[Rfam]
RNA sequence: GGCCGCUCGGGAGAUGGCAUGCCUCCCUGAACCGCCCGGCAAUCACUGCGGGGCUGAUGAUGUCUGUUGAAUG
Numbered sequence: 001g002g003c004c005g006c007u008c009g010g011g012a013g014a015u016g017g018c019a020u021g022c023c024u025c026c027c028u029g030a031a032c033c034g035c036c037c038g039g040c041a042a043u044c045a046c047u048g049c050g051g052g053g054c055u056g057a058u059g060a061u062g063u064c065u066g067u068u069g070a071a072u073g
Stems, first nucleotide, its partner, number of pairs: 010026004016064005034054004
RNA: Fluoride riboswitch aptamer (crcB RNA motif)